[Rfam]
Background: Rfam assigns this 128-nucleotide RNA from Actinomadura sp. WAC 06369 to the family "c-di-AMP riboswitch aptamer (ydaO/yuaA leader)". Taxonomically the source falls in Actinomadura (Bacteria, Bacillati, Actinomycetes, Thermomonosporaceae).
RNA sequence: AGGCCCUGAGGGCCGAGCGGAGCCGGGGACCCGAGUACCAGGGGUGAAUCGGCGCGUCCCGAGCGCGCCGUAGGGCUCUUCCAUGCCCGAAUCCGUCAGCUAACCCGGUAGGCGCCAUGGGAGACAAG
Numbered sequence: 001a002g003g004c005c006c007u008g009a010g011g012g013c014c015g016a017g018c019g020g021a022g023c024c025g026g027g028g029a030c031c032c033g034a035g036u037a038c039c040a041g042g043g044g045u046g047a048a049u050c051g052g053c054g055c056g057u058c059c060c061g062a063g064c065g066c067g068c069c070g071u072a073g074g075g076c077u078c079u080u081c082c083a084u085g086c087c088c089g090a091a092u093c094c095g096u097c098a099g100c101u102a103a104c105c106c107g108g109u110a111g112g113c114g115c116c117a118u119g120g121g122a123g124a125c126a127a128g
Stems, first nucleotide, its partner, number of pairs: 004020002022109006032041001042094003050070006073088004